[Rfam]
RNA sequence: ACGCAUCCUUAAUAAACCCCCUGGUUGCUUUCCGUGGUCUCUGGGACAAGAAAGGGUGCAAGAUAAACCUUAGAAUCCAAAGCUGAGAGACAAGUGUCAGUAGCUCUUGGUUAUUUCACCUCUAAGACAAAU
Numbered sequence: 001a002c003g004c005a006u007c008c009u010u011a012a013u014a015a016a017c018c019c020c021c022u023g024g025u026u027g028c029u030u031u032c033c034g035u036g037g038u039c040u041c042u043g044g045g046a047c048a049a050g051a052a053a054g055g056g057u058g059c060a061a062g063a064u065a066a067a068c069c070u071u072a073g074a075a076u077c078c079a080a081a082g083c084u085g086a087g088a089g090a091c092a093a094g095u096g097u098c099a100g101u102a103g104c105u106c107u108u109g110g111u112u113a114u115u116u117c118a119c120c121u122c123u124a125a126g127a128c129a130a131a132u
Stems, first nucleotide, its partner, number of pairs: 003059004009051002020045005027038002063132002069126006081112007089104001095100001

Shown here is a 132-nucleotide RNA from Gymnodraco acuticeps, a member of the family "Small nucleolar RNA SNORA14". It scores 40 bits against the family's covariance model. By type it is an H/ACA-box small nucleolar RNA. Gene Ontology terms of the family: nucleolus and RNA processing. The family's consensus secondary structure was predicted with RNAfold. ACA14 is a member of the H/ACA class of snoRNA that guide the sites of modification of uridines to pseudouridines.